[Rfam]
RNA sequence: AUCUCCCAGGUUGCAGCCUGAACCUAGGCUGAUGGCUGGUGACUUUAUGGUCACCAGCCU
Dot-bracket structure: .............(((((........)))))..((((((((((......)))))))))).
This 60-nucleotide RNA sequence from Acerihabitans arboris belongs to the Rfam family "Pseudomonas sRNA P26". The family's consensus secondary structure was predicted with RNAalifold. The organism belongs to Acerihabitans, within Bacteria. Rfam's curators write: This small RNA (sRNA) was computationally identified in the genome of the opportunistic pathogen Pseudomonas aeruginosa and its expression verified by northern blot analysis.